[Rfam]
Shown here is a 437-nucleotide RNA sequence from Deinococcus arboris, a member of the family "Bacterial RNase P class A".
RNA sequence: GCGGGGGAAUGCUUCGGCCGCGCCUGUGAACGCAGGUGAGGAAAGUCCGGGCACCGCAGGGCCAAAGAUGCCAGCUAACGGCUGGUCGGCGAGUCAAGUGCCCAGUGCCUGCGUCCGGGGCCUGGGUGGCGGCGAAGCCGAAGGACAGUGCCACAGAAACGAGACCGCCACGCACUGGCGUGCAGAACGUAAAGCCCCGGCGUGGGCGGGCGCGUGGUCAGGGUGAAACGGUGCGGUAAGAGCGCACCAGGCCCUCAGGAGACUGGGGGCGUCUGGUUAACCCCAUCUGGUGCAAGACCCGACAGUGCGGUAGGGCUGGCCCGCCCGAUGACCGCCAGGAUGGUUGCUUGAGGCGCGCAGCGAUGCGCGUCCCAGAGAGAUGGCCGAACAGUCGCGCAAGCGAUGGACAGAACCCGGCUUACAGUUCCCCCGUACAG
Numbered sequence: 001g002c003g004g005g006g007g008a009a010u011g012c013u014u015c016g017g018c019c020g021c022g023c024c025u026g027u028g029a030a031c032g033c034a035g036g037u038g039a040g041g042a043a044a045g046u047c048c049g050g051g052c053a054c055c056g057c058a059g060g061g062c063c064a065a066a067g068a069u070g071c072c073a074g075c076u077a078a079c080g081g082c083u084g085g086u087c088g089g090c091g092a093g094u095c096a097a098g099u100g101c102c103c104a105g106u107g108c109c110u111g112c113g114u115c116c117g118g119g120g121c122c123u124g125g126g127u128g129g130c131g132g133c134g135a136a137g138c139c140g141a142a143g144g145a146c147a148g149u150g151c152c153a154c155a156g157a158a159a160c161g162a163g164a165c166c167g168c169c170a171c172g173c174a175c176u177g178g179c180g181u182g183c184a185g186a187a188c189g190u191a192a193a194g195c196c197c198c199g200g201c202g203u204g205g206g207c208g209g210g211c212g213c214g215u216g217g218u219c220a221g222g223g224u225g226a227a228a229c230g231g232u233g234c235g236g237u238a239a240g241a242g243c244g245c246a247c248c249a250g251g252c253c254c255u256c257a258g259g260a261g262a263c264u265g266g267g268g269g270c271g272u273c274u275g276g277u278u279a280a281c282c283c284c285a286u287c288u289g290g291u292g293c294a295a296g297a298c299c300c301g302a303c304a305g306u307g308c309g310g311u312a313g314g315g316c317u318g319g320c321c322c323g324c325c326c327g328a329u330g331a332c333c334g335c336c337a338g339g340a341u342g343g344u345u346g347c348u349u350g351a352g353g354c355g356c357g358c359a360g361c362g363a364u365g366c367g368c369g370u371c372c373c374a375g376a377g378a379g380a381u382g383g384c385c386g387a388a389c390a391g392u393c394g395c396g397c398a399a400g401c402g403a404u405g406g407a408c409a410g411a412a413c414c415c416g417g418c419u420u421a422c423a424g425u426u427c428c429c430c431c432g433u434a435c436a437g
Stems, first nucleotide, its partner, number of pairs: 001433010011422001013388007021038007043420003047417005052292004061324002066288005071085005086142001087140004143283002148281002150277003165222002167218007175210001230248006250272001251270008296345004307335005315329001317327003352371008